[Rfam]
RNA sequence: ACAGCCUGAAAAUCACUUGUGGUCUCCUGUGGCCCCUGGUGCAGUAACUGUGCCGACAGCAGACGGAGCAUUAAACUCAUUGCCCACAGUAAAGUGUGGAGAGUGAUAUCCGUGUUCCUAUAAUC
Numbered sequence: 001a002c003a004g005c006c007u008g009a010a011a012a013u014c015a016c017u018u019g020u021g022g023u024c025u026c027c028u029g030u031g032g033c034c035c036c037u038g039g040u041g042c043a044g045u046a047a048c049u050g051u052g053c054c055g056a057c058a059g060c061a062g063a064c065g066g067a068g069c070a071u072u073a074a075a076c077u078c079a080u081u082g083c084c085c086a087c088a089g090u091a092a093a094g095u096g097u098g099g100a101g102a103g104u105g106a107u108a109u110c111c112g113u114g115u116u117c118c119u120a121u122a123a124u125c
Stems, first nucleotide, its partner, number of pairs: 006050001008048001013043001014041003021034004065118001067116005077106005085098003

Shown here is a 125-nucleotide RNA from Bucco capensis, a member of the family "Small nucleolar RNA ACA64". A search with the family's covariance model found it, with a score of 57 bits. Pairs were carried over by alignment from the consensus structure, which was predicted with WAR.